Shown here is a 109-nucleotide RNA sequence from Musa acuminata, a member of the family "Small nucleolar RNA Z152/R70/R12/".
[Rfam]
RNA sequence: GAUGCUAUGAUGAGUUUAAAUACUUGGUGUGGGCAGUGGCGGUGGCGAAUUUUGUCAUUGCCGUGAGCCUUUCUCACUAAUUAAACGACUUCUCCUUCCACUGAGCGCC
Numbered sequence: 001g002a003u004g005c006u007a008u009g010a011u012g013a014g015u016u017u018a019a020a021u022a023c024u025u026g027g028u029g030u031g032g033g034c035a036g037u038g039g040c041g042g043u044g045g046c047g048a049a050u051u052u053u054g055u056c057a058u059u060g061c062c063g064u065g066a067g068c069c070u071u072u073c074u075c076a077c078u079a080a081u082u083a084a085a086c087g088a089c090u091u092c093u094c095c096u097u098c099c100a101c102u103g104a105g106c107g108c109c
Stems, first nucleotide, its partner, number of pairs: 001109001003107003
On this family, see Barneche et al., J Mol Biol 2001: "Identification of 66 box C/D snoRNAs in Arabidopsis thaliana: extensive gene duplications generated multiple isoforms predicting new ribosomal RNA 2'-O-methylation sites".